[Rfam]
RNA: Glycine riboswitch aptamer
Organism: Rubrivivax sp.
RNA sequence: GCGACCUUGUCAGGAGAGAGCCGCCGCGCCUGCGUGGUGGCCGCCGAAGGCGCAGGGUGAUCCGAGCGAGAGCCGCUCACCCAAACGCUCAGGCAAAAGGACUGGCAGACAUCC
Numbered sequence: 001g002c003g004a005c006c007u008u009g010u011c012a013g014g015a016g017a018g019a020g021c022c023g024c025c026g027c028g029c030c031u032g033c034g035u036g037g038u039g040g041c042c043g044c045c046g047a048a049g050g051c052g053c054a055g056g057g058u059g060a061u062c063c064g065a066g067c068g069a070g071a072g073c074c075g076c077u078c079a080c081c082c083a084a085a086c087g088c089u090c091a092g093g094c095a096a097a098a099g100g101a102c103u104g105g106c107a108g109a110c111a112u113c114c
Base pairs, nucleotide, nucleotide: 007108008107009106010105011104012103013102020041021040022039023038024037025036026035027034028033043094044093045092046090047089050088051087052086056081057080058079059078060077
Dot-bracket structure: ......(((((((......(((((((((....))))))))).(((((..(((...(((((................)))))....))))).))).......)))))))......